[Rfam]
RNA sequence: GUGUGACAUGAUGGCAUACCAUCUUUCGGGACUGACUCUUGCUGUGGAGAGUUUUUUUUGUUUCACUGAUCACGU
Number, nucleotide and partner (000 for none) at each position: 001g075002u074003g073004u072005g071006a070007c000008a000009u000010g000011a000012u000013g000014g000015c000016a000017u000018a000019c000020c000021a000022u000023c000024u000025u000026u000027c000028g000029g000030g000031a000032c000033u000034g000035a000036c000037u000038c000039u000040u000041g000042c000043u000044g000045u000046g000047g000048a000049g000050a000051g000052u000053u000054u000055u000056u000057u000058u000059u000060g000061u000062u000063u000064c000065a000066c000067u000068g000069a000070u006071c005072a004073c003074g002075u001